RNA sequence: UUUGGGGAUAGGGAACUGCAGCCCGAAAAGCCGGUAUCCUGGCCGGCCUUCCCCGAUUUCAUAAACCAGGU
Number, nucleotide and partner (000 for none) at each position: 001u000002u056003u055004g054005g053006g052007g051008a050009u000010a000011g024012g023013g022014a000015a000016c000017u000018g000019c000020a000021g000022c013023c012024c011025g000026a000027a000028a000029a000030g047031c046032c045033g044034g043035u000036a000037u000038c070039c069040u068041g067042g066043c034044c033045g032046g031047c030048c000049u000050u008051c007052c006053c005054c004055g003056a002057u000058u000059u000060c000061a000062u000063a000064a000065a000066c042067c041068a040069g039070g038071u000
A member of the RNA family "int-alpA RNA" from Desulfosarcina alkanivorans, 71 nucleotides long.
The base pairs follow the family's consensus structure, which is taken from published work.
Rfam 15.1 lists 577 matches to the family in 491 species.
Acidobacteria (1 example), Planctomycetes (1 example), Proteobacteria.
It scores 44 bits against the family's covariance model.
Lineage of the source: Bacteria > Pseudomonadati > Desulfobacterales > Desulfosarcinaceae > Desulfosarcina.